[Rfam]
RNA sequence: CCAGCAGAUUUCUUUGGCAUUCUGUCCACCUCCAUAUUCAUUGAUCUAUGUAUCUCACUGUUGUGUAAAUGUGUAAUUAGGGUUUAUUGGUUUGAUAAGAAAAGAGAAAUAAUCUAGUGCAAGAUUUUGUUUUCUUUUUCUUGUGUGUGUAAUCUGUGUUUAGUUAAGAGUGUGGAGGUGGGCAUACUGUCAAUGGAGCUCUGUUGG
Numbered sequence: 001c002c003a004g005c006a007g008a009u010u011u012c013u014u015u016g017g018c019a020u021u022c023u024g025u026c027c028a029c030c031u032c033c034a035u036a037u038u039c040a041u042u043g044a045u046c047u048a049u050g051u052a053u054c055u056c057a058c059u060g061u062u063g064u065g066u067a068a069a070u071g072u073g074u075a076a077u078u079a080g081g082g083u084u085u086a087u088u089g090g091u092u093u094g095a096u097a098a099g100a101a102a103a104g105a106g107a108a109a110u111a112a113u114c115u116a117g118u119g120c121a122a123g124a125u126u127u128u129g130u131u132u133u134c135u136u137u138u139u140c141u142u143g144u145g146u147g148u149g150u151a152a153u154c155u156g157u158g159u160u161u162a163g164u165u166a167a168g169a170g171u172g173u174g175g176a177g178g179u180g181g182g183c184a185u186a187c188u189g190u191c192a193a194u195g196g197a198g199c200u201c202u203g204u205u206g207g
Base pairs, nucleotide, nucleotide: 011197014193015192016191017190018189019188023184024183025182026181027180028179029178030177031176032175033174034173035172036171037170038169039168
A member of the RNA family "MIR394 microRNA precursor family" from Helianthus annuus, 207 nucleotides long. The family has 19 seed sequences and 724 matches in Rfam 15.1. Taxonomically the source falls in Helianthus (Eukaryota, Spermatophyta, Magnoliopsida, Asteroideae).